[Rfam]
RNA sequence: AAAUCAGACAGAGGCGCAAUCAACAAGAGUAUUAAUCUUGAGCCAGCCACGGCACAGACGGAUUAAGAAAGGGGCGAUUGCCGAAGUGCAAGGACCUGGCAAGUCCUUGUGCUGGGGCGGGGUUUAAGAGACCUCGGACUGUCGCAACGAGUUAACACGUUGCGGGGCGCUAUCGGUGAC
Numbered sequence: 001a002a003a004u005c006a007g008a009c010a011g012a013g014g015c016g017c018a019a020u021c022a023a024c025a026a027g028a029g030u031a032u033u034a035a036u037c038u039u040g041a042g043c044c045a046g047c048c049a050c051g052g053c054a055c056a057g058a059c060g061g062a063u064u065a066a067g068a069a070a071g072g073g074g075c076g077a078u079u080g081c082c083g084a085a086g087u088g089c090a091a092g093g094a095c096c097u098g099g100c101a102a103g104u105c106c107u108u109g110u111g112c113u114g115g116g117g118c119g120g121g122g123u124u125u126a127a128g129a130g131a132c133c134u135c136g137g138a139c140u141g142u143c144g145c146a147a148c149g150a151g152u153u154a155a156c157a158c159g160u161u162g163c164g165g166g167g168c169g170c171u172a173u174c175g176g177u178g179a180c
Base pairs, nucleotide, nucleotide: 007174008173010171011170016081017080018079019078020077021076024073032066033065034064035063036062037061038060085113086112087111088110089109090108091107092106093105094104095103114140115139118136119135120134121133122132123131124130142165143164144163145162146161147160148159
Notes
The record is a 180-nucleotide RNA sequence from Limosilactobacillus equigenerosi, which matches "Lysine riboswitch aptamer" in Rfam. The source organism's lineage runs through Bacteria, Bacillati, Bacillota, Bacilli and Limosilactobacillus equigenerosi. Pairs were carried over by alignment from the consensus structure, which is taken from published work. Rfam links the family to the GO term lysine biosynthetic process.